The family of this 189-nucleotide RNA from Ceratobasidium sp. AG-Ba is "U2 spliceosomal RNA". The literature on the family includes a 1997 paper in Nucleic Acids Res by Zwieb, "The uRNA database". Pairs were carried over by alignment from the consensus structure, which is taken from published work. Rfam 15.1 lists 71,512 matches to the family in 2,642 species. The organism belongs to Ceratobasidium, within Eukaryota.
[Rfam]
RNA sequence: UCACCGCUCUGGCCUUUUGGCUUAGAUCAAGUGUAGUAUCUGUUCUUUUAGUCUUAAUCGACUAAAAGCUGGCACCGCCAGCUAUCUCGAUUAUUCAAUUUUUGCCGCCCGGGUCGAUGCUCCUCUGCUUGUACGAGCGUUGGUGAGAUGACCAUGCCGCUACAGUAUUGGCUUGAGUCGUCGCGGGAC
Number, nucleotide and partner (000 for none) at each position: 001u000002c000003a000004c000005c000006g000007c000008u026009c025010u024011g022012g021013c020014c019015u000016u000017u000018u000019g014020g013021c012022u011023u000024a010025g009026a008027u000028c000029a000030a000031g000032u000033g000034u000035a000036g000037u000038a000039u000040c000041u000042g000043u000044u000045c000046u000047u066048u065049u064050a063051g062052u061053c000054u000055u000056a000057a000058u000059c000060g000061a052062c051063u050064a049065a048066a047067a083068g082069c081070u080071g079072g078073c077074a000075c000076c000077g073078c072079c071080a070081g069082c068083u067084a000085u000086c000087u000088c000089g000090a000091u000092u000093a000094u000095u000096c000097a000098a000099u000100u000101u000102u000103u000104g000105c000106c000107g000108c000109c000110c000111g000112g000113g144114u143115c142116g141117a140118u139119g138120c137121u000122c000123c000124u135125c000126u133127g132128c000129u000130u000131g000132u127133a126134c000135g124136a000137g120138c119139g118140u117141u116142g115143g114144u113145g000146a000147g182148a181149u180150g179151a178152c177153c175154a174155u000156g172157c171158c170159g000160c000161u000162a000163c000164a000165g000166u000167a000168u000169u000170g158171g157172c156173u000174u154175g153176a000177g152178u151179c150180g149181u148182c147183g000184c000185g000186g000187g000188a000189c000